[Rfam]
RNA: Streptomyces RNA 2736
Organism: Streptomyces sp. Z26
RNA sequence: CGCCCGGCCAGGAUCCCGUGGGGGGAAUCCGCGACCGGGACAAGGGGAGCGCCCCGUUGGCAGGC
Numbered sequence: 001c002g003c004c005c006g007g008c009c010a011g012g013a014u015c016c017c018g019u020g021g022g023g024g025g026a027a028u029c030c031g032c033g034a035c036c037g038g039g040a041c042a043a044g045g046g047g048a049g050c051g052c053c054c055c056g057u058u059g060g061c062a063g064g065c
Base pairs, nucleotide, nucleotide: 001063003039004038005037006036007035009031011030012029013028014027015025016024017023044054045053046052